[Rfam]
RNA: c-di-AMP riboswitch aptamer (ydaO/yuaA leader)
RNA sequence: CAGCGGAAAUCACCCGACCCAAGGGCGGCAGGAGCGGGGGAACCACAGGUAAGUGCCGCGUCGCGGAAACGCGACCGGCUUGGGGUGAAGCCCCCUCGCGCACAUGCCACGGGCAUGUGCGCAGGUGGCCGGGCAACUCCAGCCCGAAUCCGACAGCUCACCUCGCAGGCGUAGGAGAGGAACACU
Numbered sequence: 001c002a003g004c005g006g007a008a009a010u011c012a013c014c015c016g017a018c019c020c021a022a023g024g025g026c027g028g029c030a031g032g033a034g035c036g037g038g039g040g041a042a043c044c045a046c047a048g049g050u051a052a053g054u055g056c057c058g059c060g061u062c063g064c065g066g067a068a069a070c071g072c073g074a075c076c077g078g079c080u081u082g083g084g085g086u087g088a089a090g091c092c093c094c095c096u097c098g099c100g101c102a103c104a105u106g107c108c109a110c111g112g113g114c115a116u117g118u119g120c121g122c123a124g125g126u127g128g129c130c131g132g133g134c135a136a137c138u139c140c141a142g143c144c145c146g147a148a149u150c151c152g153a154c155a156g157c158u159c160a161c162c163u164c165g166c167a168g169g170c171g172u173a174g175g176a177g178a179g180g181a182a183c184a185c186u
Stems, first nucleotide, its partner, number of pairs: 011171001013169002019032002034166006044082002083151003091128002094125003131145004